A member of the RNA family "Group II catalytic intron D1-D4-1" from Desulfohalobium retbaense, 74 nucleotides long. The base pairs follow the family's consensus structure. Rfam describes the family as follows. Group II introns are found in rRNA, tRNA and mRNA of organelles in fungi, plants and protists, and also in mRNA in bacteria. NCBI's taxonomy places the organism under Bacteria, Desulfovibrionales, Desulfohalobiaceae, Desulfohalobium, Desulfohalobium retbaense.

RNA sequence: CGUCGCGAGGCUUCGGGACGGGCGGGCAGAAGUCAGCCGAGGGCAUAGUAGGUCCCCCGACCGGACUGAAGGCC
Numbered sequence: 001c002g003u004c005g006c007g008a009g010g011c012u013u014c015g016g017g018a019c020g021g022g023c024g025g026g027c028a029g030a031a032g033u034c035a036g037c038c039g040a041g042g043g044c045a046u047a048g049u050a051g052g053u054c055c056c057c058c059g060a061c062c063g064g065a066c067u068g069a070a071g072g073c074c
Stems, first nucleotide, its partner, number of pairs: 001020004006015003033040002042074003051067005